[Rfam]
Nucleotides: 141
Base pairs, nucleotide, nucleotide: 002064003063004062005061006060007059009057010056019049020048021047022043023042025040026039028037074132075131078129079128082124083123084122093112095110
Number, partner (000 for none) and nucleotide at each position: 001000a002064u003063c004062c005061a006060u007059g008000g009057u010056g011000a012000u013000u014000a015000u016000c017000u018000c019049u020048c021047c022043a023042a024000a025040g026039g027000a028037c029000c030000a031000a032000a033000a034000a035000a036000u037028g038000c039026c040025c041000c042023u043022u044000u045000c046000a047021g048020g049019a050000a051000a052000g053000u054000a055000g056010c057009a058000a059007c060006g061005u062004g063003g064002a065000a066000g067000a068000a069000a070000a071000u072000c073000u074132g075131a076000u077000a078129u079128u080000c081000u082124g083123a084122g085000a086000u087000c088000a089000c090000u091000g092000a093112g094000u095110g096000a097000a098000a099000g100000a101000g102000g103000a104000u105000g106000u107000u108000u109000g110095u111000u112093u113000c114000a115000u116000u117000u118000a119000c120000u121000u122084u123083u124082c125000u126000u127000u128079g129078g130000c131075u132074c133000c134000c135000u136000a137000c138000a139000g140000g141000u
This 141-nucleotide RNA sequence from Cavia porcellus belongs to the Rfam family "Small nucleolar RNA SNORA67". By type it is an H/ACA-box small nucleolar RNA. Rfam 15.1 lists 580 matches to the family in 130 species. The family's consensus secondary structure was predicted with RNAalifold. The organism belongs to Cavia, within Eukaryota. It scores 99 bits against the family's covariance model. Rfam links the family to the GO terms nucleolus and RNA processing. Rfam's curators write: U67 belongs to the H/ACA class of snoRNAs which are thought to guide the sites of modification of uridines to pseudouridines.